The record is a 54-nucleotide RNA sequence, which matches "nadA riboswitch" in Rfam. The family's consensus secondary structure is taken from published work. For this family Rfam cites "Structure and ligand binding of the ADP-binding domain of the NAD(+) riboswitch" (Huang et al., RNA, 2020). It is annotated as a small RNA.
RNA sequence: GGCUUCAACAUCCCUGCGGGUGGGACCUUCCAGGUAUGUGCAUCCGCUGGAGCC
Numbered sequence: 001g002g003c004u005u006c007a008a009c010a011u012c013c014c015u016g017c018g019g020g021u022g023g024g025a026c027c028u029u030c031c032a033g034g035u036a037u038g039u040g041c042a043u044c045c046g047c048u049g050g051a052g053c054c
Base pairs, nucleotide, nucleotide: 001054002053003052004051005050006049007048013040014038016047017046018045019044020043021042022041023039025035026034027033028032